Shown here is a 121-nucleotide RNA sequence from Hemibagrus wyckioides, a member of the family "Small nucleolar RNA SNORA26".
The family's consensus secondary structure was predicted with RNAalifold.
For this family Rfam cites "RNomics: an experimental approach that identifies 201 candidates for novel, small, non-messenger RNAs in mouse" (Huttenhofer et al., EMBO J, 2001).
Rfam classes the family as an H/ACA-box small nucleolar RNA.
The snoRNA HBI-6 belong to the H/ACA family of snoRNAs, guiding the pseudouridylation of position U4522 if the 28S rRNA. HBI-6 is the human orthologue of mouse MBI-6 snoRNA.
NCBI's taxonomy places the organism under Eukaryota, Chordata, Teleostomi, Siluriformes, Hemibagrus.
It scores 63 bits against the family's covariance model.
[Rfam]
RNA sequence: UUGCCCAUUUAAGACUGCUAGUGUCCUAAAUGAUUAACACAGGGGGGAAGAAGAAAUCUCUCAAAAAACCUGAAGUAAAGGCUGAUUUUCCUUGCUUCGGAUCCUGUCGGGAGAAACAAUC
Numbered sequence: 001u002u003g004c005c006c007a008u009u010u011a012a013g014a015c016u017g018c019u020a021g022u023g024u025c026c027u028a029a030a031u032g033a034u035u036a037a038c039a040c041a042g043g044g045g046g047g048a049a050g051a052a053g054a055a056a057u058c059u060c061u062c063a064a065a066a067a068a069c070c071u072g073a074a075g076u077a078a079a080g081g082c083u084g085a086u087u088u089u090c091c092u093u094g095c096u097u098c099g100g101a102u103c104c105u106g107u108c109g110g111g112a113g114a115a116a117c118a119a120u121c
Base pairs, nucleotide, nucleotide: 002049004047005046006045008043009042010041016036017035019030058113059112060111061110062109070100071099072098073097074096075095076094078092080090
Dot-bracket structure: .(.(((.(((.....((.(..........)....))....))).))).)........(((((.......(((((((.(.(.........).).)))))))........)))))........